[Rfam]
RNA sequence: AUGUUAUAAAGAAAGGACGAGGGAUUAGACCCGAUGAAGCCUUAGCAACCCUUCGAGAAAUCGAAGAAGGUGCUGCAUUCUACCACUCCCAAAAGUGGAAAGAUAACAA
Numbered sequence: 001a002u003g004u005u006a007u008a009a010a011g012a013a014a015g016g017a018c019g020a021g022g023g024a025u026u027a028g029a030c031c032c033g034a035u036g037a038a039g040c041c042u043u044a045g046c047a048a049c050c051c052u053u054c055g056a057g058a059a060a061u062c063g064a065a066g067a068a069g070g071u072g073c074u075g076c077a078u079u080c081u082a083c084c085a086c087u088c089c090c091a092a093a094a095g096u097g098g099a100a101a102g103a104u105a106a107c108a109a
Base pairs, nucleotide, nucleotide: 002108003107004106005105006104007103013043014042015041016040021032022031023030026082027081028080029079044074045073046072047071049070050069051066052065053064054063078101083098084097085096086095087094
RNA: SAM riboswitch aptamer (S box leader)